[Rfam]
RNA: Small nucleolar RNA SNORA20
RNA sequence: UUUCCCAUUUUUUUGCUGCUAUAGUCUCACAGUGAUAUGAGCAGCUAUAUGCAUGGUAUAAAAUAAGAUUAGGCCAUUGUAAAUUGAGAUGAAGUAACCACUUUCAUCUCUUCUGCAUGGACUAGGCAUUG
Numbered sequence: 001u002u003u004c005c006c007a008u009u010u011u012u013u014u015g016c017u018g019c020u021a022u023a024g025u026c027u028c029a030c031a032g033u034g035a036u037a038u039g040a041g042c043a044g045c046u047a048u049a050u051g052c053a054u055g056g057u058a059u060a061a062a063a064u065a066a067g068a069u070u071a072g073g074c075c076a077u078u079g080u081a082a083a084u085u086g087a088g089a090u091g092a093a094g095u096a097a098c099c100a101c102u103u104u105c106a107u108c109u110c111u112u113c114u115g116c117a118u119g120g121a122c123u124a125g126g127c128a129u130u131g
Base pairs, nucleotide, nucleotide: 003058005056006055007054008053015045016044017043018042019041020040022037023036025035026034069125070124071123072122074120075119076118078117079116080115081114086110087109088108089107090106091104092103093102094101095100